[Rfam]
Source information:
Shown here is a 64-nucleotide RNA sequence from Streptomyces sp. ERV7, a member of the family "Streptomyces RNA 2736". The literature on the family includes a 2011 paper in RNA Biol by Vockenhuber et al., "Deep sequencing-based identification of small non-coding RNAs in Streptomyces coelicolor". The family's RNA type in Rfam is small RNA. About the family: Identified by deep sequencing of transcriptome at the end of exponential growth phase. Appears smaller on northern blot than sequencing transcript. This indicates processing step. Streptomyces specific. A search with the family's covariance model found it, with a score of 60 bits.
RNA sequence: CUCCCGGCCGGAUCCCGUGGGGGGAAUCCGCACCGGGUAUAGGGGAAGCGCCCCGCCCGCCAAC
Numbered sequence: 001c002u003c004c005c006g007g008c009c010g011g012a013u014c015c016c017g018u019g020g021g022g023g024g025a026a027u028c029c030g031c032a033c034c035g036g037g038u039a040u041a042g043g044g045g046a047a048g049c050g051c052c053c054c055g056c057c058c059g060c061c062a063a064c
Stems, first nucleotide, its partner, number of pairs: 003037005009030005014024003042053003